[Rfam]
RNA sequence: UGGCUUGGUUUCCUGGGGGGUGGACUCAGCCUACUCCACCUCCCCUCAGCCGAGCCUAGAGUAGAGGGGCCAGGCAUCCUUUCUGGGGGAGAGGCGUUUAUGUAAGGAGCUUCGCCUGGGCUGUCCUAGCCUCACAUUU
Numbered sequence: 001u002g003g004c005u006u007g008g009u010u011u012c013c014u015g016g017g018g019g020g021u022g023g024a025c026u027c028a029g030c031c032u033a034c035u036c037c038a039c040c041u042c043c044c045c046u047c048a049g050c051c052g053a054g055c056c057u058a059g060a061g062u063a064g065a066g067g068g069g070c071c072a073g074g075c076a077u078c079c080u081u082u083c084u085g086g087g088g089g090a091g092a093g094g095c096g097u098u099u100a101u102g103u104a105a106g107g108a109g110c111u112u113c114g115c116c117u118g119g120g121c122u123g124u125c126c127u128a129g130c131c132u133c134a135c136a137u138u139u
Stems, first nucleotide, its partner, number of pairs: 002056006015044010066133005072127003078120003086113004
Rfam assigns this 139-nucleotide RNA from Microcebus murinus to the family "Small Cajal body specific RNA 21". About the family: scaRNAs are a specific class of small nuclear RNAs which localise to the Cajal bodies and guide the modification of RNA polymerase II transcribed spliceosomal RNAs U1, U2, U4, U5 and U12. ACA68 (SCARNA21) is a member of the H/ACA class of snoRNAs that guide the sites of modification of uridines to pseudouridines. This snoRNA was identified by computational screening and its expression in mouse experimentally verified by Northern blot and primer extension analysis. ACA68 is proposed to guide the pseudouridylation of residue U19 in U12 snRNA. Rfam's curators put it in the seed alignment. It is annotated as a small Cajal body RNA. Rfam 15.1 lists 278 matches to the family in 138 species.